RNA sequence: AAGAUUUCUCGUAGAGCCACGAGAAGUAAAUUAAAGAAAGCUCACUGAGA
Number, nucleotide and partner (000 for none) at each position: 001a000002a000003g000004a000005u000006u025007u024008c023009u022010c021011g020012u000013a000014g043015a042016g041017c040018c000019a000020c011021g010022a009023g008024a007025a006026g000027u000028a000029a000030a000031u000032u000033a000034a000035a000036g000037a000038a000039a000040g017041c016042u015043c014044a000045c000046u000047g000048a000049g000050a000
A member of the RNA family "6A RNA", 50 nucleotides long. Rfam classes the family as a small RNA. Rfam's curators put it in the seed alignment.